[Rfam]
RNA: Baculoviridae Nucleocapsid Assembly essential Element
RNA sequence: CAUUUACAGCAUCGUAUAUUAACCAAUAUACUACAAUCGGACAUUUGUGCUAACCUAUAUACUACGAUGUACCAAAAAUAUACUACACUGGCACAGAAAUAUACUACAACUCCGCUACAAUAUAACUACACUCUCGUAAAACAACCUCGAAAUAUGGUAGUAUAUGCUAAAAAUAUACAAUUGAAAAACGCUACGAUUUC
Numbered sequence: 001c002a003u004u005u006a007c008a009g010c011a012u013c014g015u016a017u018a019u020u021a022a023c024c025a026a027u028a029u030a031c032u033a034c035a036a037u038c039g040g041a042c043a044u045u046u047g048u049g050c051u052a053a054c055c056u057a058u059a060u061a062c063u064a065c066g067a068u069g070u071a072c073c074a075a076a077a078a079u080a081u082a083c084u085a086c087a088c089u090g091g092c093a094c095a096g097a098a099a100u101a102u103a104c105u106a107c108a109a110c111u112c113c114g115c116u117a118c119a120a121u122a123u124a125a126c127u128a129c130a131c132u133c134u135c136g137u138a139a140a141a142c143a144a145c146c147u148c149g150a151a152a153u154a155u156g157g158u159a160g161u162a163u164a165u166g167c168u169a170a171a172a173a174u175a176u177a178c179a180a181u182u183g184a185a186a187a188a189c190g191c192u193a194c195g196a197u198u199u200c
Stems, first nucleotide, its partner, number of pairs: 008192003014031007037053001039051002041048002136178002152163004